[Rfam]
Nucleotides: 173
Base pairs, nucleotide, nucleotide: 001016002015003014004013005012006011030171035166036165040160041159042158043157044156045155046151047150048149049148050147062146063145064144065143066142067141073138074137075136080132081131082130083129084128086114087113088112089111092107093106094105095104
Number, partner (000 for none) and nucleotide at each position: 001016u002015c003014c004013a005012c006011c007000g008000u009000g010000a011006g012005g013004u014003g015002g016001a017000a018000u019000c020000u021000g022000a023000a024000g025000g026000a027000a028000g029000c030171u031000a032000u033000a034000g035166g036165c037000a038000a039000a040160a041159u042158c043157c044156u045155g046151g047150c048149c049148c050147g051000a052000u053000g054000a055000a056000c057000a058000a059000g060000a061000a062146c063145c064144g065143c066142a067141u068000a069000u070000a071000a072000g073138g074137c075136u076000g077000a078000a079000u080132u081131g082130g083129a084128a085000u086114g087113g088112a089111u090000g091000a092107g093106u094105u095104u096000g097000c098000c099000g100000a101000a102000c103000a104095a105094a106093a107092c108000g109000a110000a111089g112088u113087c114086c115000g116000a117000c118000a119000c120000u121000g122000c123000c124000c125000g126000a127000a128084u129083u130082c131081c132080a133000u134000a135000c136075a137074g138073u139000a140000a141067a142066u143065g144064c145063g146062g147050c148049g149048g150047g151046u152000a153000g154000a155045u156044g157043g158042g159041a160040u161000g162000a163000a164000a165036g166035c167000a168000a169000u170000c171030g172000u173000a

This 173-nucleotide RNA from Defluviitoga tunisiensis belongs to the Rfam family "Group II catalytic intron D1-D4-3". On this family, see Bonen and Vogel, Trends Genet 2001: "The ins and outs of group II introns". Rfam links the family to the GO term Group II intron splicing. From the family's description: Group II introns are found in rRNA, tRNA and mRNA of organelles in fungi, plants and protists, and also in mRNA in bacteria.